[Rfam]
RNA sequence: GUAAUGUGUGCAUAGGUUUCAUCUGUGUCUGGUAGCAGUGUCUGUCUGUGUUUUUCAUUCAGAUCUUGCUAUCCACACAAACAUCAUGCGGCCAAAGAGUAACUUGGGAUCAUAGUACUGGUCUAGUGUUGUCUCUGGACACAUCUACCACUGGCCAGCCUCCAAAUUCCCACACACAG
Numbered sequence: 001g002u003a004a005u006g007u008g009u010g011c012a013u014a015g016g017u018u019u020c021a022u023c024u025g026u027g028u029c030u031g032g033u034a035g036c037a038g039u040g041u042c043u044g045u046c047u048g049u050g051u052u053u054u055u056c057a058u059u060c061a062g063a064u065c066u067u068g069c070u071a072u073c074c075a076c077a078c079a080a081a082c083a084u085c086a087u088g089c090g091g092c093c094a095a096a097g098a099g100u101a102a103c104u105u106g107g108g109a110u111c112a113u114a115g116u117a118c119u120g121g122u123c124u125a126g127u128g129u130u131g132u133c134u135c136u137g138g139a140c141a142c143a144u145c146u147a148c149c150a151c152u153g154g155c156c157a158g159c160c161u162c163c164a165a166a167u168u169c170c171c172a173c174a175c176a177c178a179g
Base pairs, nucleotide, nucleotide: 010089011088012087013086026079027078028077030075031074032073033071034070035069036068037067038066040064041063042062043061044060047057048056105172106171107170108169109168118158119157120156121155122154123153125152126151127150128149130143131142132141134139
The family of this 179-nucleotide RNA is "Small nucleolar RNA SNORA23". The members of this family belong to the H/ACA class of snoRNAs which are thought to guide the sites of modification of uridines to pseudouridines. This family includes human snoRNA ACA23 (SNORA23) and mouse snoMBI-1. By type it is an H/ACA-box small nucleolar RNA. Rfam 15.1 lists 1,092 matches to the family in 632 species. The literature on the family includes a 2001 paper in EMBO J by Huttenhofer et al., "RNomics: an experimental approach that identifies 201 candidates for novel, small, non-messenger RNAs in mouse". Gene Ontology terms of the family: nucleolus and RNA processing.